A member of the RNA family "mir-8834 microRNA precursor family" from Vulpes vulpes, 95 nucleotides long. Rfam links the family to the GO terms RISC complex and miRNA-mediated post-transcriptional gene silencing.
RNA sequence: GGAAGCUUCAGUGGCGGGGCCAGCUCUGGAAACCUGGAUUCAGCUCCCGCAGGAACUAAGGAGCUCUCUGCAGGGCCUGGAGGCUCCGGGGCGGG
Numbered sequence: 001g002g003a004a005g006c007u008u009c010a011g012u013g014g015c016g017g018g019g020c021c022a023g024c025u026c027u028g029g030a031a032a033c034c035u036g037g038a039u040u041c042a043g044c045u046c047c048c049g050c051a052g053g054a055a056c057u058a059a060g061g062a063g064c065u066c067u068c069u070g071c072a073g074g075g076c077c078u079g080g081a082g083g084c085u086c087c088g089g090g091g092c093g094g095g
Stems, first nucleotide, its partner, number of pairs: 002087001004085004009079003014071006022065006030057001033053004
The match comes from Rfam's covariance-model search (69 bits).
The base pairs follow the family's consensus structure, which was predicted with RNAalifold.